[Rfam]
RNA sequence: CGAUUGAAACUUUUGCGUCUCAUGGGUGCCGCUGUGCGUGUGCAGUCUGCCUUUCCUGCUUCCGUUACAGGAAUUGGGAGGGUUUGCAUUGUUCGCGCUCAGUUGAUCCCGUGGGUUUGGCCAGCAUCGGCAGGCGUCCGACCAUCUCCCCCGAGGAAGGUAGGUCUUUCGCGGACUGUUAUUGAGCCUCGGGCUUCCAGAGGUUCGGUUGCCUGCCGAGGAGUGUUCUUUUUGCGCGUGCGGCGGCUCCACUUUCGAGGACCGCCGCUCCGCGAUGCUGUCUCUAACAGUUUCAACCGACCCGUCUUGAAACACGG
Numbered sequence: 001c002g003a004u005u006g007a008a009a010c011u012u013u014u015g016c017g018u019c020u021c022a023u024g025g026g027u028g029c030c031g032c033u034g035u036g037c038g039u040g041u042g043c044a045g046u047c048u049g050c051c052u053u054u055c056c057u058g059c060u061u062c063c064g065u066u067a068c069a070g071g072a073a074u075u076g077g078g079a080g081g082g083u084u085u086g087c088a089u090u091g092u093u094c095g096c097g098c099u100c101a102g103u104u105g106a107u108c109c110c111g112u113g114g115g116u117u118u119g120g121c122c123a124g125c126a127u128c129g130g131c132a133g134g135c136g137u138c139c140g141a142c143c144a145u146c147u148c149c150c151c152c153g154a155g156g157a158a159g160g161u162a163g164g165u166c167u168u169u170c171g172c173g174g175a176c177u178g179u180u181a182u183u184g185a186g187c188c189u190c191g192g193g194c195u196u197c198c199a200g201a202g203g204u205u206c207g208g209u210u211g212c213c214u215g216c217c218g219a220g221g222a223g224u225g226u227u228c229u230u231u232u233u234g235c236g237c238g239u240g241c242g243g244c245g246g247c248u249c250c251a252c253u254u255u256c257g258a259g260g261a262c263c264g265c266c267g268c269u270c271c272g273c274g275a276u277g278c279u280g281u282c283u284c285u286a287a288c289a290g291u292u293u294c295a296a297c298c299g300a301c302c303c304g305u306c307u308u309g310a311a312a313c314a315c316g317g
Stems, first nucleotide, its partner, number of pairs: 001299002004296008017117001019115007122280008302317004